[Rfam]
RNA sequence: CAGCGGGUGGAAGUCCCGCCCGAGGAGGAAGUCGACCCCCUCGGUAGCUAUCUGGCGGGGACGUCGGGCGACUGACAGACUCGAAGCCCAGAGACAGAAGGCCUCGAAAGGAGGUCGAGCGAGCUUGCAGGCCGCAACGUGA
Numbered sequence: 001c002a003g004c005g006g007g008u009g010g011a012a013g014u015c016c017c018g019c020c021c022g023a024g025g026a027g028g029a030a031g032u033c034g035a036c037c038c039c040c041u042c043g044g045u046a047g048c049u050a051u052c053u054g055g056c057g058g059g060g061a062c063g064u065c066g067g068g069c070g071a072c073u074g075a076c077a078g079a080c081u082c083g084a085a086g087c088c089c090a091g092a093g094a095c096a097g098a099a100g101g102c103c104u105c106g107a108a109a110g111g112a113g114g115u116c117g118a119g120c121g122a123g124c125u126u127g128c129a130g131g132c133c134g135c136a137a138c139g140u141g142a
Stems, first nucleotide, its partner, number of pairs: 020044005051092005056083004065074001067072001100116006119135003